[Rfam]
RNA sequence: GACUUAAGUGCGCGCAAUGGAUGCCUUGGCGGUUGAGGGCGACGAAGGACGUGCCAAUACACGAAAACACCGGCGUGCCUAUUGGGGCGGCAACCCGGUGGUGUCCGAAUGGGGAAACCUGGGCUCUAGGUGAGCCCGUCCUGACCUGAAUAUAUAGGGCCAGGACGCGCACGCGGUGAACUGAAACAUCUCAGUAGCCGCAGGAGAAGAAAUCAAAGAGAUUCCCAUAGUAGUGGCGAGCGAAACGGGAGGAGCCUGCGUAGGCGCCCCCAUAGCAGCAGCCGAAUGCCAUGGAACGGGCAACCGCAGACGGUGACAGUCCGGUAGGCUAAGCUGCAUGGGGUCAGACAACCUGCGCUUUAGAGUAGGGCGGGGCACGCUAACCCUGUCUGAAUAUGGGGGGACCAUCCUCCAAGGCUAAAUACCCACAACCGACCGAUAGUGAACAAGUACCGUGAGGGAAAGGUGAAAAGAGCUCUGGGGGAGCAGUGAAACAGACCUGAAAUUGCGCGCACACGAA
Numbered sequence: 001g002a003c004u005u006a007a008g009u010g011c012g013c014g015c016a017a018u019g020g021a022u023g024c025c026u027u028g029g030c031g032g033u034u035g036a037g038g039g040c041g042a043c044g045a046a047g048g049a050c051g052u053g054c055c056a057a058u059a060c061a062c063g064a065a066a067a068c069a070c071c072g073g074c075g076u077g078c079c080u081a082u083u084g085g086g087g088c089g090g091c092a093a094c095c096c097g098g099u100g101g102u103g104u105c106c107g108a109a110u111g112g113g114g115a116a117a118c119c120u121g122g123g124c125u126c127u128a129g130g131u132g133a134g135c136c137c138g139u140c141c142u143g144a145c146c147u148g149a150a151u152a153u154a155u156a157g158g159g160c161c162a163g164g165a166c167g168c169g170c171a172c173g174c175g176g177u178g179a180a181c182u183g184a185a186a187c188a189u190c191u192c193a194g195u196a197g198c199c200g201c202a203g204g205a206g207a208a209g210a211a212a213u214c215a216a217a218g219a220g221a222u223u224c225c226c227a228u229a230g231u232a233g234u235g236g237c238g239a240g241c242g243a244a245a246c247g248g249g250a251g252g253a254g255c256c257u258g259c260g261u262a263g264g265c266g267c268c269c270c271c272a273u274a275g276c277a278g279c280a281g282c283c284g285a286a287u288g289c290c291a292u293g294g295a296a297c298g299g300g301c302a303a304c305c306g307c308a309g310a311c312g313g314u315g316a317c318a319g320u321c322c323g324g325u326a327g328g329c330u331a332a333g334c335u336g337c338a339u340g341g342g343g344u345c346a347g348a349c350a351a352c353c354u355g356c357g358c359u360u361u362a363g364a365g366u367a368g369g370g371c372g373g374g375g376c377a378c379g380c381u382a383a384c385c386c387u388g389u390c391u392g393a394a395u396a397u398g399g400g401g402g403g404a405c406c407a408u409c410c411u412c413c414a415a416g417g418c419u420a421a422a423u424a425c426c427c428a429c430a431a432c433c434g435a436c437c438g439a440u441a442g443u444g445a446a447c448a449a450g451u452a453c454c455g456u457g458a459g460g461g462a463a464a465g466g467u468g469a470a471a472a473g474a475g476c477u478c479u480g481g482g483g484g485a486g487c488a489g490u491g492a493a494a495c496a497g498a499c500c501u502g503a504a505a506u507u508g509c510g511c512g513c514a515c516a517c518g519a520a
Stems, first nucleotide, its partner, number of pairs: 008515010023500001024466002028437002030434006037426002039168002047106003050063003068100006077088003111120003121137006139165005145159003172203001173201005183190002213219002222422001223250004233241002253419004260356005268343006275337005281329003287302004305309001311323003368391008398413005453460002475487004

This 520-nucleotide part of an RNA from Candidatus Tremblayella princeps belongs to the Rfam family "Bacterial large subunit ribosomal RNA". Its family is annotated with structural constituent of ribosome and ribosome in the Gene Ontology. Taxonomically the source falls in Candidatus Tremblayella (Bacteria, Pseudomonadati, Pseudomonadota, Betaproteobacteria).